RNA sequence: CACUCCUAUUUCUGCCCCACAUUCUUUUUACUCUAUGGACUGGUGGGUUCUGUUUAAUGGAGAAGAAAAUGCCAAGAAAUGGUAUGCCUGCACCUUGAUACAUCGCAGGGAUAUUUCAUUUGUUGGAUCGUGUGAACGUACGCCUUGUAUCCAGUUGCUGUUUCCGAGUGCAGUCUGGGGAUGGCGUUUUCUCUACAUUU
Numbered sequence: 001c002a003c004u005c006c007u008a009u010u011u012c013u014g015c016c017c018c019a020c021a022u023u024c025u026u027u028u029u030a031c032u033c034u035a036u037g038g039a040c041u042g043g044u045g046g047g048u049u050c051u052g053u054u055u056a057a058u059g060g061a062g063a064a065g066a067a068a069a070u071g072c073c074a075a076g077a078a079a080u081g082g083u084a085u086g087c088c089u090g091c092a093c094c095u096u097g098a099u100a101c102a103u104c105g106c107a108g109g110g111a112u113a114u115u116u117c118a119u120u121u122g123u124u125g126g127a128u129c130g131u132g133u134g135a136a137c138g139u140a141c142g143c144c145u146u147g148u149a150u151c152c153a154g155u156u157g158c159u160g161u162u163u164c165c166g167a168g169u170g171c172a173g174u175c176u177g178g179g180g181a182u183g184g185c186g187u188u189u190u191c192u193c194u195a196c197a198u199u200u
Stems, first nucleotide, its partner, number of pairs: 003062004016047004020042002023039003072126004077121005082114004087109005132193001134191002140187005151178003159172003163168001
The record is a 200-nucleotide RNA from Eremothecium cymbalariae, which matches "Small nucleolar RNA snR43" in Rfam. Pairs were carried over by alignment from the consensus structure, which is taken from published work. Clan: SNORA9 clan. Rfam classes the family as an H/ACA-box small nucleolar RNA.